[Rfam]
Nucleotides: 078
Base pairs, nucleotide, nucleotide: 004050005049006048007047008046009045010044011043012042015039016038017066018065019064020063021062024036025035026034027033057071058070059069
Number, partner (000 for none) and nucleotide at each position: 001000a002000g003000c004050a005049a006048g007047u008046c009045g010044u011043a012042u013000a014000a015039c016038c017066g018065g019064c020063g021062g022000a023000a024036g025035u026034g027033g028000a029000a030000u031000a032000a033027c034026c035025a036024c037000a038016g039015g040000g041000a042012g043011u044010a045009c046008g047007a048006u049005u050004u051000u052000u053000a054000a055000a056000a057071g058070c059069c060000g061000a062021c063020c064019g065018c066017c067000u068000g069059g070058g071057c072000a073000c074000a075000u076000g077000a078000a

The record is a 78-nucleotide sequence from Clostridium sp. CT7, which matches "ZMP/ZTP riboswitch aptamer (pfl RNA motif)" in Rfam.
The match comes from Rfam's covariance-model search (60 bits).
The organism belongs to Clostridium, within Bacteria.
Its family is annotated with one-carbon metabolic process and regulation of purine nucleotide biosynthetic process in the Gene Ontology.